[Rfam]
RNA sequence: AGAAGAUCGGUAGAUCUAUCUCGUAUAUAUUCAGGAAUACGGCCUGAACGUUUCUACCCGGCCACCGUAAAUGGCCGGACUACGAGUCAUGGGUUACCGGUA
Numbered sequence: 001a002g003a004a005g006a007u008c009g010g011u012a013g014a015u016c017u018a019u020c021u022c023g024u025a026u027a028u029a030u031u032c033a034g035g036a037a038u039a040c041g042g043c044c045u046g047a048a049c050g051u052u053u054c055u056a057c058c059c060g061g062c063c064a065c066c067g068u069a070a071a072u073g074g075c076c077g078g079a080c081u082a083c084g085a086g087u088c089a090u091g092g093g094u095u096a097c098c099g100g101u102a
Base pairs, nucleotide, nucleotide: 020086021085022084023083024082025081030048031047032046033045034044035043058078059077060076061075062074063073064072
Record summary
Shown here is a 102-nucleotide sequence from Paludifilum halophilum, a member of the family "Purine riboswitch aptamer". Lineage of the source: Bacteria > Bacillota > Bacilli > Thermoactinomycetaceae > Paludifilum. A search with the family's covariance model found it, with a score of 83 bits.